[Rfam]
RNA sequence: GUCCUAUACAGAUGUAUCGGCGCAAGCCAGCGGAGCAUCUCCCUUUAGGGCGAAGUUUAUUUAUUAGAAGCUUUGACAACAAUUUUCAUUGUGUGGCUACGGUCGAAAUGGGAUGAGUUAGAGUGGAGUAGGUUAACCGUAAGACCUUGAGUUGGAAAAUUCUAAAUUGGAGCUAGAGAUAUGGAUUUAUUAAAUUUUGCAUUUUCUGGUUACGGCGAG
Numbered sequence: 001g002u003c004c005u006a007u008a009c010a011g012a013u014g015u016a017u018c019g020g021c022g023c024a025a026g027c028c029a030g031c032g033g034a035g036c037a038u039c040u041c042c043c044u045u046u047a048g049g050g051c052g053a054a055g056u057u058u059a060u061u062u063a064u065u066a067g068a069a070g071c072u073u074u075g076a077c078a079a080c081a082a083u084u085u086u087c088a089u090u091g092u093g094u095g096g097c098u099a100c101g102g103u104c105g106a107a108a109u110g111g112g113a114u115g116a117g118u119u120a121g122a123g124u125g126g127a128g129u130a131g132g133u134u135a136a137c138c139g140u141a142a143g144a145c146c147u148u149g150a151g152u153u154g155g156a157a158a159a160u161u162c163u164a165a166a167u168u169g170g171a172g173c174u175a176g177a178g179a180u181a182u183g184g185a186u187u188u189a190u191u192a193a194a195u196u197u198u199g200c201a202u203u204u205u206c207u208g209g210u211u212a213c214g215g216c217g218a219g
Stems, first nucleotide, its partner, number of pairs: 001051006008044001010040006017034002020031002022028001070124008084113007095104002130147005137215005142168001149162005173209007184198001
RNA: IS605-orfB-I RNA